[Rfam]
RNA sequence: GAACACGAUUUAGAAUUGCGAAGUCAAGUGGGUCUCCUUCGGGGGACGGCUUGGGGAAAUUCCCCGGACACCAGGGCAGAGAGUGCCAGCGUUAAAGCGCAGAUCCCCUCGUGAUGAAGCUUGGCGGAGAUGGUCGUUUUCGGCCGGAGCUGCGUUGGAUUCGCGAGGAUUGAUGGUCAUACUAAAAGUUAUGCAAUUGGCUCAGUGGCACAUGGCGGACGUCGUGCCGUCGCUGCUUGGAGCUAACCCGACGGGGAUUACUCAUGUUGUGUU
Numbered sequence: 001g002a003a004c005a006c007g008a009u010u011u012a013g014a015a016u017u018g019c020g021a022a023g024u025c026a027a028g029u030g031g032g033u034c035u036c037c038u039u040c041g042g043g044g045g046a047c048g049g050c051u052u053g054g055g056g057a058a059a060u061u062c063c064c065c066g067g068a069c070a071c072c073a074g075g076g077c078a079g080a081g082a083g084u085g086c087c088a089g090c091g092u093u094a095a096a097g098c099g100c101a102g103a104u105c106c107c108c109u110c111g112u113g114a115u116g117a118a119g120c121u122u123g124g125c126g127g128a129g130a131u132g133g134u135c136g137u138u139u140u141c142g143g144c145c146g147g148a149g150c151u152g153c154g155u156u157g158g159a160u161u162c163g164c165g166a167g168g169a170u171u172g173a174u175g176g177u178c179a180u181a182c183u184a185a186a187a188g189u190u191a192u193g194c195a196a197u198u199g200g201c202u203c204a205g206u207g208g209c210a211c212a213u214g215g216c217g218g219a220c221g222u223c224g225u226g227c228c229g230u231c232g233c234u235g236c237u238u239g240g241a242g243c244u245a246a247c248c249c250g251a252c253g254g255g256g257a258u259u260a261c262u263c264a265u266g267u268u269g270u271g272u273u
Stems, first nucleotide, its partner, number of pairs: 002273008011264001014198006024054006032047006058259003062256004075087004089100004102171003109167001118160001120158002122152004132145004200243004205238001
RNA: RNase MRP
Organism: Phytophthora megakarya